[Rfam]
RNA sequence: GCAGACUCACUCUGUCCUGAACUGCUGUCUUCAGUUCAGGUACUUUUUCUGUCUGCGAGAGUAAUAGAUCACAAGAGUGACGAUUGCCUUCUUUCUUGUAGAAGGCUGCUAAAAUUGCUUUUGGGACAUUGCU
Numbered sequence: 001g002c003a004g005a006c007u008c009a010c011u012c013u014g015u016c017c018u019g020a021a022c023u024g025c026u027g028u029c030u031u032c033a034g035u036u037c038a039g040g041u042a043c044u045u046u047u048u049c050u051g052u053c054u055g056c057g058a059g060a061g062u063a064a065u066a067g068a069u070c071a072c073a074a075g076a077g078u079g080a081c082g083a084u085u086g087c088c089u090u091c092u093u094u095c096u097u098g099u100a101g102a103a104g105g106c107u108g109c110u111a112a113a114a115u116u117g118c119u120u121u122u123g124g125g126a127c128a129u130u131g132c133u
Stems, first nucleotide, its partner, number of pairs: 001056006014043002016040005022034003069124003073120003077115002082109001086106004

Shown here is a 133-nucleotide RNA from Glareola pratincola, a member of the family "Small nucleolar RNA SNORA77". The family's consensus secondary structure was predicted with RNAalifold. A search with the family's covariance model found it, with a score of 48 bits. Rfam's curators write: ACA63 (SNORA77) is a member of the H/ACA class of snoRNAs that guide the sites of modification of uridines to pseudouridines. This snoRNA was identified by computational screening and its expression in mouse experimentally verified by Northern blot and primer extension analysis. ACA63 is proposed to guide the pseudouridylation of 18S rRNA U814. By type it is an H/ACA-box small nucleolar RNA. The source organism's lineage runs through Eukaryota, Eumetazoa, Bilateria, Neognathae and Glareola.